[Rfam]
RNA sequence: UAGAUAUAGAAGGAGAUUCUUUCAGUCCAAUCGUGGAUAGAACAAGAGGGUAGAAAUAUCUGCCGACUCAUCCAUCCAAACACUCAUGGUUAUGAAACAAGAAAUGUUAAACCACAGUGACUGUGUGAAUGAUGCGGGAGAUGUUUUUCAUCUCUCUUUAUCUGUGUUUGGACUGAAGGGAGCUCCUUCUUUAUCUACA
Number, nucleotide and partner (000 for none) at each position: 001u000002a000003g000004a000005u000006a000007u000008a000009g000010a000011a000012g000013g185014a184015g183016a000017u181018u180019c179020u178021u000022u000023c175024a174025g173026u172027c171028c170029a169030a000031u000032c000033g000034u000035g000036g162037a000038u000039a000040g000041a000042a000043c000044a000045a000046g000047a000048g000049g000050g000051u000052a000053g000054a000055a000056a000057u000058a000059u000060c140061u139062g000063c137064c136065g135066a000067c000068u000069c131070a130071u129072c000073c000074a000075u000076c000077c123078a000079a000080a000081c000082a000083c000084u000085c000086a000087u000088g000089g000090u000091u000092a000093u000094g000095a000096a000097a000098c000099a000100a000101g000102a000103a000104a000105u000106g000107u000108u000109a000110a000111a000112c000113c000114a000115c000116a000117g000118u000119g000120a000121c000122u000123g077124u000125g000126u000127g000128a000129a071130u070131g069132a000133u000134g000135c065136g064137g063138g000139a061140g060141a000142u000143g000144u000145u000146u000147u000148u000149c000150a000151u000152c000153u000154c000155u000156c000157u000158u000159u000160a000161u000162c036163u000164g000165u000166g000167u000168u000169u029170g028171g027172a026173c025174u024175g023176a000177a000178g020179g019180g018181a017182g000183c015184u014185c013186c000187u000188u000189c000190u000191u000192u000193a000194u000195c000196u000197a000198c000199a000
A member of the RNA family "MIR159 microRNA precursor family" from Raphanus sativus, 199 nucleotides long. Rfam 15.1 lists 3,649 matches to the family in 242 species. A reference for the family is Jones-Rhoades and Bartel (2004), "Computational identification of plant microRNAs and their targets, including a stress-induced miRNA", Mol Cell. The organism belongs to Raphanus, within Eukaryota.